[Rfam]
RNA: Small nucleolar RNA SNORA49
RNA sequence: UGUCCUCAGCCUUACUCCAGGGGCUUUUGCUUGUAAAGCACCUUGGCAUUGCCUGAGGAUAAAUGAGAAAGCACAUCUCCCUCCCCAGCAAGACUGCUUUCUUGUGGGGCCUACAGACUGCGCUGACAGG
Numbered sequence: 001u002g003u004c005c006u007c008a009g010c011c012u013u014a015c016u017c018c019a020g021g022g023g024c025u026u027u028u029g030c031u032u033g034u035a036a037a038g039c040a041c042c043u044u045g046g047c048a049u050u051g052c053c054u055g056a057g058g059a060u061a062a063a064u065g066a067g068a069a070a071g072c073a074c075a076u077c078u079c080c081c082u083c084c085c086c087a088g089c090a091a092g093a094c095u096g097c098u099u100u101c102u103u104g105u106g107g108g109g110c111c112u113a114c115a116g117a118c119u120g121c122g123c124u125g126a127c128a129g130g
Stems, first nucleotide, its partner, number of pairs: 003059007011051001017046006023039005070124003074120002083109005090103004